A member of the RNA family "tRNA" from Paraflavitalea soli, 72 nucleotides long. Rfam describes the family as follows. Transfer RNA (tRNA) molecules are approximately 80 nucleotides in length. Taxonomically the source falls in Paraflavitalea (Bacteria, Pseudomonadati, Chitinophagia, Chitinophagales). By type it is a transfer RNA. The base pairs follow the family's consensus structure, which is taken from published work.
[Rfam]
RNA sequence: GGUCUGUUCGUUCAAUGGUCAGGACGCAGGGUUUUCAUUCCUGAAAUGAGGGUUCGAUUCCCUUGCAGACUA
Numbered sequence: 001g002g003u004c005u006g007u008u009c010g011u012u013c014a015a016u017g018g019u020c021a022g023g024a025c026g027c028a029g030g031g032u033u034u035u036c037a038u039u040c041c042u043g044a045a046a047u048g049a050g051g052g053u054u055c056g057a058u059u060c061c062c063u064u065g066c067a068g069a070c071u072a
Base pairs, nucleotide, nucleotide: 001071002070003069004068005067006066007065010025011024012023013022027043028042029041030040031039048064049063050062051061052060